[Rfam]
The record is a 413-nucleotide RNA sequence from Paenibacillus validus, which matches "Bacterial RNase P class A" in Rfam. Pairs were carried over by alignment from the consensus structure, which is taken from published work. Lineage of the source: Bacteria > Bacillati > Bacilli > Caryophanales > Paenibacillus.
RNA sequence: AAAGUUUGACAGACAAUCGCUGGCGGCCUUGCGCCGCGAGAGGAAAGUCCGGGCUCCAUAGGGCAGGAUGCUGGAUAACGUCCAGUCAGCGCGAGCUGAAGGCUAGUGCCACAGAAACGGACCGCCGAUGGCCGCCGCUUCACGGCAGCGGCACAGGCAAGGGUGGAACCGUGGUGUAAGAGACCACGAGGAGCCAUGGUGACAUGGUUCCUGGUAAACCCCAUCUGGAGCAAGACCUAGAGGAACGCUAGUCUCUUUAAGGGACAGCCUUAGCCCGAGGCGCGUUCGGGUUGGUCGCUUGAGCCAGGCAGCAAUGUUUGGCCUAGAUAGAUGAUUGUCGCUUCAAUGGUGGCAGGGUGGCCCCCGUUACGACCACUGGAAGCACAGAACCCGGCUUACGGCAAACUUUCUUU
Numbered sequence: 001a002a003a004g005u006u007u008g009a010c011a012g013a014c015a016a017u018c019g020c021u022g023g024c025g026g027c028c029u030u031g032c033g034c035c036g037c038g039a040g041a042g043g044a045a046a047g048u049c050c051g052g053g054c055u056c057c058a059u060a061g062g063g064c065a066g067g068a069u070g071c072u073g074g075a076u077a078a079c080g081u082c083c084a085g086u087c088a089g090c091g092c093g094a095g096c097u098g099a100a101g102g103c104u105a106g107u108g109c110c111a112c113a114g115a116a117a118c119g120g121a122c123c124g125c126c127g128a129u130g131g132c133c134g135c136c137g138c139u140u141c142a143c144g145g146c147a148g149c150g151g152c153a154c155a156g157g158c159a160a161g162g163g164u165g166g167a168a169c170c171g172u173g174g175u176g177u178a179a180g181a182g183a184c185c186a187c188g189a190g191g192a193g194c195c196a197u198g199g200u201g202a203c204a205u206g207g208u209u210c211c212u213g214g215u216a217a218a219c220c221c222c223a224u225c226u227g228g229a230g231c232a233a234g235a236c237c238u239a240g241a242g243g244a245a246c247g248c249u250a251g252u253c254u255c256u257u258u259a260a261g262g263g264a265c266a267g268c269c270u271u272a273g274c275c276c277g278a279g280g281c282g283c284g285u286u287c288g289g290g291u292u293g294g295u296c297g298c299u300u301g302a303g304c305c306a307g308g309c310a311g312c313a314a315u316g317u318u319u320g321g322c323c324u325a326g327a328u329a330g331a332u333g334a335u336u337g338u339c340g341c342u343u344c345a346a347u348g349g350u351g352g353c354a355g356g357g358u359g360g361c362c363c364c365c366g367u368u369a370c371g372a373c374c375a376c377u378g379g380a381a382g383c384a385c386a387g388a389a390c391c392c393g394g395c396u397u398a399c400g401g402c403a404a405a406c407u408u409u410c411u412u413u
Stems, first nucleotide, its partner, number of pairs: 001409008010400001012339007020040002023037005045397003049394005054230004061276004066226005071085005086100001087098004101221002106219002108215003122162002124158003129153002132150001170188006190211009234296004243287006267281005303322008
Its family is annotated with tRNA processing, dimeric ribonuclease P complex and ribonuclease P activity in the Gene Ontology. The family's RNA type in Rfam is ribozyme.